The family of this 60-nucleotide RNA sequence is "Plastid-psbA-2 3UTR RNA". It is annotated as a cis-regulatory element. It scores 73 bits against the family's covariance model.
RNA sequence: UAUAUGGAGCAAUAAACUUUUUCUUGUUCUAUCAAGAGGGCUUAUUGCUCCUUAUAUUUA
Numbered sequence: 001u002a003u004a005u006g007g008a009g010c011a012a013u014a015a016a017c018u019u020u021u022u023c024u025u026g027u028u029c030u031a032u033c034a035a036g037a038g039g040g041c042u043u044a045u046u047g048c049u050c051c052u053u054a055u056a057u058u059u060a
Stems, first nucleotide, its partner, number of pairs: 001056004006051010017040003022037005